[Rfam]
RNA: CyVA-1 RNA
RNA sequence: GUGCUGAAGGAGCGUUAUACCGCUGUGGCUCCUUACUGCAUUUCGAAGGAGAGCGACGUCAGAGAUGCAGUCAGCAU
Numbered sequence: 001g002u003g004c005u006g007a008a009g010g011a012g013c014g015u016u017a018u019a020c021c022g023c024u025g026u027g028g029c030u031c032c033u034u035a036c037u038g039c040a041u042u043u044c045g046a047a048g049g050a051g052a053g054c055g056a057c058g059u060c061a062g063a064g065a066u067g068c069a070g071u072c073a074g075c076a077u
Stems, first nucleotide, its partner, number of pairs: 001077006009032004037069008